[Rfam]
RNA sequence: UGCUCCGAGGAGCGUUGCAGCGAACCGGUGGCCUGUUAUCUGUCAGGCUGGUUUGCGAGGCUCGGACUUCAUGCACGCGUGAUGUGGCUUCGCCGUCUGGCGCCCGACACUCCAUGCAUUCGCAACGACGCUCAUCCGCC
Numbered sequence: 001u002g003c004u005c006c007g008a009g010g011a012g013c014g015u016u017g018c019a020g021c022g023a024a025c026c027g028g029u030g031g032c033c034u035g036u037u038a039u040c041u042g043u044c045a046g047g048c049u050g051g052u053u054u055g056c057g058a059g060g061c062u063c064g065g066a067c068u069u070c071a072u073g074c075a076c077g078c079g080u081g082a083u084g085u086g087g088c089u090u091c092g093c094c095g096u097c098u099g100g101c102g103c104c105c106g107a108c109a110c111u112c113c114a115u116g117c118a119u120u121c122g123c124a125a126c127g128a129c130g131c132u133c134a135u136c137c138g139c140c
Stems, first nucleotide, its partner, number of pairs: 002068001004066005021055009